[Rfam]
RNA sequence: UUGUUUGCUGAUGCAGCACCAACAAGAUUCACAUGCAAAAUUGAACUUAUGUAAUGUAUCAAAAAUAUUUCUUUAAUUGUUUGGCUUGUGAAUCUUGAUGGUGCUGCAUUGGCGAUUGA
Numbered sequence: 001u002u003g004u005u006u007g008c009u010g011a012u013g014c015a016g017c018a019c020c021a022a023c024a025a026g027a028u029u030c031a032c033a034u035g036c037a038a039a040a041u042u043g044a045a046c047u048u049a050u051g052u053a054a055u056g057u058a059u060c061a062a063a064a065a066u067a068u069u070u071c072u073u074u075a076a077u078u079g080u081u082u083g084g085c086u087u088g089u090g091a092a093u094c095u096u097g098a099u100g101g102u103g104c105u106g107c108a109u110u111g112g113c114g115a116u117u118g119a
Stems, first nucleotide, its partner, number of pairs: 010110012023097008032088002
The record is a 119-nucleotide RNA from Acer yangbiense, which matches "mir-172 microRNA precursor family" in Rfam. mir-172 has been experimentally verified in Arabidopsis thaliana. This family is thought to target mRNAs coding for APETALA2-like transcription factors. The literature on the family includes a 2004 paper in Mol Cell by Jones-Rhoades and Bartel, "Computational Identification of Plant MicroRNAs and Their Targets, Including a Stress-Induced miRNA".